Rfam assigns this 46-nucleotide RNA sequence from Alkalibacillus haloalkaliphilus to the family "PreQ1 (pre queuosine) riboswitch aptamer". The literature on the family includes a 2004 paper in J Biol Chem by Reader et al., "Identification of four genes necessary for biosynthesis of the modified nucleoside queuosine". Taxonomically the source falls in Alkalibacillus (Bacteria, Bacillati, Bacillota, Caryophanales). This family is a bacterial riboswitch that binds to the metabolite preQ1, an intermediate in the biosynthesis of the modified nucleoside queuosine from GTP. One example of this riboswitch is located in the leader of the Bacillus subtilis ykvJKLM (queCDEF) operon which encodes four genes necessary for queuosine production. PreQ1 binding to the riboswitch aptamer is thought to induce premature transcription termination within the leader to down-regulate expression of these genes.

RNA sequence: UCGGGAGAGGUUCUAGCCAAAACCCUCUAUAAAAAACUAGGGAUAC
Numbered sequence: 001u002c003g004g005g006a007g008a009g010g011u012u013c014u015a016g017c018c019a020a021a022a023c024c025c026u027c028u029a030u031a032a033a034a035a036a037c038u039a040g041g042g043a044u045a046c
Base pairs, nucleotide, nucleotide: 006028007027008026009025010024014039015038